[Rfam]
Rfam assigns this 109-nucleotide RNA from Polycladospora coralii to the family "SAM riboswitch aptamer (S box leader)". Lineage of the source: Bacteria > Bacillati > Bacilli > Thermoactinomycetaceae > Polycladospora. It scores 90 bits against the family's covariance model.
RNA sequence: UUCUUAUCUAGAGAGGUGUAGGGACUGGCCCGAUGAAGCCUCGGCAGCGGACUCGUAUUAUGGAGUGCUGUGCCAAAUCCAGCAAGCAUUUUUGCUUGAAAGAUAAGAA
Numbered sequence: 001u002u003c004u005u006a007u008c009u010a011g012a013g014a015g016g017u018g019u020a021g022g023g024a025c026u027g028g029c030c031c032g033a034u035g036a037a038g039c040c041u042c043g044g045c046a047g048c049g050g051a052c053u054c055g056u057a058u059u060a061u062g063g064a065g066u067g068c069u070g071u072g073c074c075a076a077a078u079c080c081a082g083c084a085a086g087c088a089u090u091u092u093u094g095c096u097u098g099a100a101a102g103a104u105a106a107g108a109a
Stems, first nucleotide, its partner, number of pairs: 001109008013042005021031003025082004043074004048070002051066004078101001083098006